Background:
The record is a 66-nucleotide RNA from Desmophyllum pertusum, which matches "Epstein-Barr virus stable intronic sequence RNA 2" in Rfam. Pairs were carried over by alignment from the consensus structure. The source organism's lineage runs through Eukaryota, Metazoa, Eumetazoa, Vacatina and Desmophyllum. It scores 43 bits against the family's covariance model. A reference for the family is Moss et al. (2014), "RNA families in Epstein-Barr virus", RNA Biol.
[Rfam]
RNA sequence: GACCCAGAGACCCAGGGUCGCUGGGUCUCUGAAUCCAGCGACCCAGCGACCCUGGGUCUCUGGGUC
Numbered sequence: 001g002a003c004c005c006a007g008a009g010a011c012c013c014a015g016g017g018u019c020g021c022u023g024g025g026u027c028u029c030u031g032a033a034u035c036c037a038g039c040g041a042c043c044c045a046g047c048g049a050c051c052c053u054g055g056g057u058c059u060c061u062g063g064g065u066c
Stems, first nucleotide, its partner, number of pairs: 001066009012055016029038003